[Rfam]
RNA sequence: ACGACCUUACUUGAACAGGAUCUGUUCUAUAGGGAAGUGCCUCUGUAUCCUUUAGUAAAAAGGAGACGGUAACCAAAGCUUGGUGGAUGAACCAGGACCGUGUGAUCAGAGCAUGAUUAAUGGCCGAGAUUCAAGCUGUGAAUCUUCUGGUUGUAGAGGAUCGUUCUCAGCUGCCUUGGUGGCUGAGAUGGUCACACGGUUGUCUGACAGGCU
Numbered sequence: 001a002c003g004a005c006c007u008u009a010c011u012u013g014a015a016c017a018g019g020a021u022c023u024g025u026u027c028u029a030u031a032g033g034g035a036a037g038u039g040c041c042u043c044u045g046u047a048u049c050c051u052u053u054a055g056u057a058a059a060a061a062g063g064a065g066a067c068g069g070u071a072a073c074c075a076a077a078g079c080u081u082g083g084u085g086g087a088u089g090a091a092c093c094a095g096g097a098c099c100g101u102g103u104g105a106u107c108a109g110a111g112c113a114u115g116a117u118u119a120a121u122g123g124c125c126g127a128g129a130u131u132c133a134a135g136c137u138g139u140g141a142a143u144c145u146u147c148u149g150g151u152u153g154u155a156g157a158g159g160a161u162c163g164u165u166c167u168c169a170g171c172u173g174c175c176u177u178g179g180u181g182g183c184u185g186a187g188a189u190g191g192u193c194a195c196a197c198g199g200u201u202g203u204c205u206g207a208c209a210g211g212c213u
Stems, first nucleotide, its partner, number of pairs: 001038002005033003013027006043069004048064006078212005097200012110165003120154007127145006134139001167186008
The family of this 213-nucleotide RNA from Aquilegia coerulea is "Plant small nucleolar RNA U3". The family has 24 seed sequences and 3,759 matches in Rfam 15.1. A reference for the family is Zwieb (1997), "The uRNA database", Nucleic Acids Res. Rfam links the family to the GO terms RNA processing and nucleolus. Lineage of the source: Eukaryota > Embryophyta > Tracheophyta > Spermatophyta > Aquilegia. The family's consensus secondary structure is taken from published work. Rfam's curators write: Small nucleolar RNAs (snoRNAs) are involved in the processing and modification of rRNA in the nucleolus. There are two main classes of snoRNAs: the box C/D class, and the box H/ACA class. U3 snoRNA is a member of the box C/D class. Indeed, the box C/D element is a subset of the six short sequence elements found in all U3 snoRNAs, namely boxes A, A', B, C, C', and D. The U3 snoRNA secondary structure is characterised by a small 5' domain (with boxes A and A'), and a larger 3' domain (with boxes B, C, C', and D), the two domains being linked by a single-stranded hinge.